This 48-nucleotide RNA from Camelus dromedarius belongs to the Rfam family "Histone 3' UTR stem-loop". Rfam describes the family as follows. The mRNAs of metazoan histone genes lack a poly-A tail. 3' end processing occurs at a site between a highly conserved stem-loop (modelled by this family) and a purine rich region around 20 nts downstream (the histone downstream element, or HDE). The family's consensus secondary structure is taken from published work. A search with the family's covariance model found it, with a score of 37 bits. By type it is a cis-regulatory element.
RNA sequence: CCAAAGGCUCUUUUCAGAGCCACCUACAAUUUCACUUUGAAGAGCUGU
Numbered sequence: 001c002c003a004a005a006g007g008c009u010c011u012u013u014u015c016a017g018a019g020c021c022a023c024c025u026a027c028a029a030u031u032u033c034a035c036u037u038u039g040a041a042g043a044g045c046u047g048u
Stems, first nucleotide, its partner, number of pairs: 006021006